[Rfam]
RNA: Small nucleolar RNA SNORD83
RNA sequence: GCCACAUGAUGACCUGAAUAGAGAGCAGGAGCUCGGCUGUGAUGACAUCUCAUCUAUCACCCCUGUCUGAUGGCU
Numbered sequence: 001g002c003c004a005c006a007u008g009a010u011g012a013c014c015u016g017a018a019u020a021g022a023g024a025g026c027a028g029g030a031g032c033u034c035g036g037c038u039g040u041g042a043u044g045a046c047a048u049c050u051c052a053u054c055u056a057u058c059a060c061c062c063c064u065g066u067c068u069g070a071u072g073g074c075u
Base pairs, nucleotide, nucleotide: 001074002073003072004071031037032036